A member of the RNA family "glmS glucosamine-6-phosphate activated ribozyme aptamer" from Gemella sp. GL1.1, 163 nucleotides long. It is annotated as a riboswitch.
[Rfam]
RNA sequence: UUUAUAAUUAUAGCGCCCGAACUAAGUUUUAAUGGUUAAACUAAGCUUAGUUGACGAGGAAAAAAGUUAUCGAUGAUUCGGCGGAUGCUUUUUCGGAAUACAGAGUUUCGUUAGGUAGCAUACAAAAGAAAUUAUUUCUACAAAAUUGUUGCCAUCUCUAUUC
Dot-bracket structure: ...................((((((((.(.............).))))))))........(((((....((((....)))).......)))))((((((.....))))))...(((((((.......((((...))))........)))))))..........